[Rfam]
RNA sequence: AGCCGUCCCAACGGCUCUAAAAAGUCCAUUAAGUUGGGAGCGUCCGGCAGAAAUGCCGGGGUUGGA
Numbered sequence: 001a002g003c004c005g006u007c008c009c010a011a012c013g014g015c016u017c018u019a020a021a022a023a024g025u026c027c028a029u030u031a032a033g034u035u036g037g038g039a040g041c042g043u044c045c046g047g048c049a050g051a052a053a054u055g056c057c058g059g060g061g062u063u064g065g066a
Stems, first nucleotide, its partner, number of pairs: 001016004006039006025066004033041001043060007
Rfam assigns this 66-nucleotide RNA from Lachnospiraceae bacterium A2 to the family "Pistol ribozyme". The match comes from Rfam's covariance-model search (54 bits). The family's consensus secondary structure is taken from published work.